[Rfam]
RNA sequence: AAUCAGAUUAAUAUAGAUCCUCGUAUAUAAUUGGGAAUAUGGCCCAGAAGUUUCUACCCGAUGACCGUAAAUCGUUGGACUAUGAGGGAAAGUGUAUGUAUA
Numbered sequence: 001a002a003u004c005a006g007a008u009u010a011a012u013a014u015a016g017a018u019c020c021u022c023g024u025a026u027a028u029a030a031u032u033g034g035g036a037a038u039a040u041g042g043c044c045c046a047g048a049a050g051u052u053u054c055u056a057c058c059c060g061a062u063g064a065c066c067g068u069a070a071a072u073c074g075u076u077g078g079a080c081u082a083u084g085a086g087g088g089a090a091a092g093u094g095u096a097u098g099u100a101u102a
Base pairs, nucleotide, nucleotide: 018088019087020086021085022084023083024082025081031047032046033045034044035043058078059077060076061075062074063073064072
The record is a 102-nucleotide RNA from Metabacillus harenarius, which matches "Purine riboswitch aptamer" in Rfam.
It scores 85 bits against the family's covariance model.
Rfam links the family to the GO term purine nucleobase biosynthetic process.
Rfam describes the family as follows. Riboswitches are metabolite binding domains within certain messenger RNAs that serve as precision sensors for their corresponding targets.